[Rfam]
RNA: Glycine riboswitch aptamer
RNA sequence: CGACCCGCGACGGGAGAGCCCCCGGACACCACCGGGGCGCCGAAGGAGCAACGUUCUCCCCAGAAUCUCUCAGGCACAGGUACCGCCGCGGUCAG
Numbered sequence: 001c002g003a004c005c006c007g008c009g010a011c012g013g014g015a016g017a018g019c020c021c022c023c024g025g026a027c028a029c030c031a032c033c034g035g036g037g038c039g040c041c042g043a044a045g046g047a048g049c050a051a052c053g054u055u056c057u058c059c060c061c062a063g064a065a066u067c068u069c070u071c072a073g074g075c076a077c078a079g080g081u082a083c084c085g086c087c088g089c090g091g092u093c094a095g
Base pairs, nucleotide, nucleotide: 006090007089008088009087011085012084013083020037021036022035023034039075040074041073042071043070046069047068048067053061